Shown here is a 79-nucleotide sequence from Pelusios castaneus, a member of the family "MIR5269 microRNA precursor family". Rfam links the family to the GO terms RISC complex and miRNA-mediated post-transcriptional gene silencing. The family has 2 seed sequences and 389 matches in Rfam 15.1. The organism belongs to Pelusios, within Eukaryota. Pairs were carried over by alignment from the consensus structure, which was predicted with RNAalifold. A search with the family's covariance model found it, with a score of 60 bits.

RNA sequence: UGGGAGAAAAUCCCACUUCAUCAGACGCUUUGAAAAUGGGAAACUUACAAAGCGUCUGACAAAGUGGGAUUUUCUCCCA
Numbered sequence: 001u002g003g004g005a006g007a008a009a010a011u012c013c014c015a016c017u018u019c020a021u022c023a024g025a026c027g028c029u030u031u032g033a034a035a036a037u038g039g040g041a042a043a044c045u046u047a048c049a050a051a052g053c054g055u056c057u058g059a060c061a062a063a064g065u066g067g068g069a070u071u072u073u074c075u076c077c078c079a
Stems, first nucleotide, its partner, number of pairs: 001079018023057010